[Rfam]
RNA sequence: UAUCGCGUAAGCGAUCGUUAAUGUUCCCGUAGUCUGAGAGGAACGCCUUCGGGUGACUGAUCUCAAUGCCAUCAUAGCCUGAGAGAUGGCGUCUUCGGACGGCAAAUCCGUUUAUCCUUUGAAAACGGGUAUCACUAACAAUAGUGAUGAAGGUGCAA
Numbered sequence: 001u002a003u004c005g006c007g008u009a010a011g012c013g014a015u016c017g018u019u020a021a022u023g024u025u026c027c028c029g030u031a032g033u034c035u036g037a038g039a040g041g042a043a044c045g046c047c048u049u050c051g052g053g054u055g056a057c058u059g060a061u062c063u064c065a066a067u068g069c070c071a072u073c074a075u076a077g078c079c080u081g082a083g084a085g086a087u088g089g090c091g092u093c094u095u096c097g098g099a100c101g102g103c104a105a106a107u108c109c110g111u112u113u114a115u116c117c118u119u120u121g122a123a124a125a126c127g128g129g130u131a132u133c134a135c136u137a138a139c140a141a142u143a144g145u146g147a148u149g150a151a152g153g154u155g156c157a158a
Stems, first nucleotide, its partner, number of pairs: 002015005023044005030059005045054003068090005077103003091100003107129005116153004131148007